[Rfam]
Nucleotides: 159
Stems, first nucleotide, its partner, number of pairs: 001159007008068004016060001018058001020056003025051001027050002029046001031044005072116008081106004088099004119152007130142003
Number, partner (000 for none) and nucleotide at each position: 001159u002158g003157a004156a005155a006154g007153c008068g009067u010066u011065g012000u013000c014000a015000a016060g017000c018058g019000g020056u021055u022054a023000g024000a025051c026000a027050u028049u029046c030000u031044g032043c033042g034041u035040g036000c037000c038000u039000g040035c041034a042033c043032g044031c045000a046029g047000u048000g049028a050027a051025g052000a053000a054022u055021a056020g057000g058018c059000a060016u061000u062000u063000g064000a065011c066010g067009a068008c069000c070000a071000a072116g073115c074114c075113g076112g077111u078110a079109u080000g081106g082105u083104a084103a085000g086000c087000a088099g089098g090097g091096c092000g093000a094000u095000a096091g097090c098089c099088c100000g101000g102000a103084u104083u105082a106081c107000g108000a109079a110078u111077g112076c113075u114074g115073g116072c117000g118000g119152u120151a121150g122149c123148u124147g125146c126000g127000g128000g129000a130142g131141u132140g133000c134000c135000g136000a137000a138000g139000c140132c141131a142130c143000g144000g145000a146125g147124c148123a149122g150121c151120u152119g153007g154006c155005u156004u157003u158002c159001a

Annotation:
A member of the RNA family "Clostridiales-1 RNA", 159 nucleotides long.